Source information:
A member of the RNA family "Small nucleolar RNA R44/J54/Z268 family" from Sesamum indicum, 84 nucleotides long. Rfam classes the family as a C/D-box small nucleolar RNA. Lineage of the source: Eukaryota > eudicotyledons > Lamiales > Pedaliaceae > Sesamum. It scores 73 bits against the family's covariance model. Gene Ontology terms of the family: RNA processing and nucleolus.
RNA sequence: UGUGCAUAUGAUGAUAAACAGACAGGGACAUCAGCACUCUAUUAGAGUAUGAUGAUUUGUCGAUGGGAAUCUCUCUGAUGUAUA
Dot-bracket structure: .(((((........................................................................))))).